[Rfam]
Purine riboswitch aptamer: a 101-nucleotide RNA sequence from Bulleidia extructa. The source organism's lineage runs through Bacteria, Bacillati, Erysipelotrichaceae, Bulleidia and Bulleidia extructa. A search with the family's covariance model found it, with a score of 62 bits.
RNA sequence: UGAUAAAGUAAAUUAAUCGCUGGUUUAAUACCCAUAAUUUGGUUGGGUAGUUUCUACCGGGUCACCUAAUGAUCCGACAAUUAAGCGAAAACAUAGUUUUC
Numbered sequence: 001u002g003a004u005a006a007a008g009u010a011a012a013u014u015a016a017u018c019g020c021u022g023g024u025u026u027a028a029u030a031c032c033c034a035u036a037a038u039u040u041g042g043u044u045g046g047g048u049a050g051u052u053u054c055u056a057c058c059g060g061g062u063c064a065c066c067u068a069a070u071g072a073u074c075c076g077a078c079a080a081u082u083a084a085g086c087g088a089a090a091a092c093a094u095a096g097u098u099u100u101c
Stems, first nucleotide, its partner, number of pairs: 018087004022082004029049006058076007
The family has 133 seed sequences and 4,097 matches in Rfam 15.1.